RNA sequence: UGAAUUUUGGGAUGAGGCCCUGAAAUGCGUGCUGGGUACACUGCCUGAAUCAGACUGUGGAAAUAUGAAUUUA
Numbered sequence: 001u002g003a004a005u006u007u008u009g010g011g012a013u014g015a016g017g018c019c020c021u022g023a024a025a026u027g028c029g030u031g032c033u034g035g036g037u038a039c040a041c042u043g044c045c046u047g048a049a050u051c052a053g054a055c056u057g058u059g060g061a062a063a064u065a066u067g068a069a070u071u072u073a
Stems, first nucleotide, its partner, number of pairs: 001073005